[Rfam]
RNA sequence: CUGUGAUGCGCCUGGGGUGAACCUCGGUAAUGAGGGGCCCUAUCCUGCCUGUGGCACAGAUCAGCCUCCUGGCAGAGGUUGGCAGGCGUAUCACACAG
Numbered sequence: 001c002u003g004u005g006a007u008g009c010g011c012c013u014g015g016g017g018u019g020a021a022c023c024u025c026g027g028u029a030a031u032g033a034g035g036g037g038c039c040c041u042a043u044c045c046u047g048c049c050u051g052u053g054g055c056a057c058a059g060a061u062c063a064g065c066c067u068c069c070u071g072g073c074a075g076a077g078g079u080u081g082g083c084a085g086g087c088g089u090a091u092c093a094c095a096c097a098g
Stems, first nucleotide, its partner, number of pairs: 001098005008089006014041004022035005044082002047079004052074002
Overview:
Rfam assigns this 98-nucleotide RNA from Limosa lapponica to the family "L4-Archaeoglobi ribosomal protein leades". Lineage of the source: Eukaryota > Euteleostomi > Sarcopterygii > Charadriiformes > Limosa lapponica. It is annotated as a cis-regulatory leader.